Histidine operon leader: a 117-nucleotide RNA sequence from Aliiglaciecola sp. M165. At least 6 amino acid operons are known to be regulated by attenuation. In each a leader sequence of 150-200 bp is found upstream of the first gene in the operon. A search with the family's covariance model found it, with a score of 66 bits. A reference for the family is Kolter and Yanofsky (1982), "Attenuation in amino acid biosynthetic operons", Annu Rev Genet.
RNA sequence: UCAUGCGCAUCAUCAUAUAGCAUAACCUUUCAGGUUCGUGCUGGAAGGUUUAUUGUCCUUCCAGUGGAGCAGAAUUUUUCUAAACCCCCGGAAGGAAACUUCUGGGGGUUUUUGUUU
Numbered sequence: 001u002c003a004u005g006c007g008c009a010u011c012a013u014c015a016u017a018u019a020g021c022a023u024a025a026c027c028u029u030u031c032a033g034g035u036u037c038g039u040g041c042u043g044g045a046a047g048g049u050u051u052a053u054u055g056u057c058c059u060u061c062c063a064g065u066g067g068a069g070c071a072g073a074a075u076u077u078u079u080c081u082a083a084a085c086c087c088c089c090g091g092a093a094g095g096a097a098a099c100u101u102c103u104g105g106g107g108g109u110u111u112u113u114g115u116u117u
Base pairs, nucleotide, nucleotide: 008040009039010038012035013034014033020031041064042063043062044061045060046059047058048057079114082111083110084109085108086107087106088105089104090103091102092101093100094099